[Rfam]
RNA sequence: UUAGCACCCAAAAACCCAAAGAUCAUGUCACAGAAUGCCAUGAUCUUGCCUGGUGUGCUUAAAUAAAUUUUUUGUGCCUUGUCGCCUUUCGGAAGCUGGUGUGCUCUCGAAAGUGAAUUCAAGGUCCCACAAUU
Numbered sequence: 001u002u003a004g005c006a007c008c009c010a011a012a013a014a015c016c017c018a019a020a021g022a023u024c025a026u027g028u029c030a031c032a033g034a035a036u037g038c039c040a041u042g043a044u045c046u047u048g049c050c051u052g053g054u055g056u057g058c059u060u061a062a063a064u065a066a067a068u069u070u071u072u073u074g075u076g077c078c079u080u081g082u083c084g085c086c087u088u089u090c091g092g093a094a095g096c097u098g099g100u101g102u103g104c105u106c107u108c109g110a111a112a113g114u115g116a117a118u119u120c121a122a123g124g125u126c127c128c129a130c131a132a133u134u
Base pairs, nucleotide, nucleotide: 003059004058005057006056007055009053021045022044023043024042025041026040027039029037030036074127076125077124078123079122080121086113087112088111089110090109091108092107094105095104096103
RNA: Small nucleolar RNA SNORA68
Organism: Denticeps clupeoides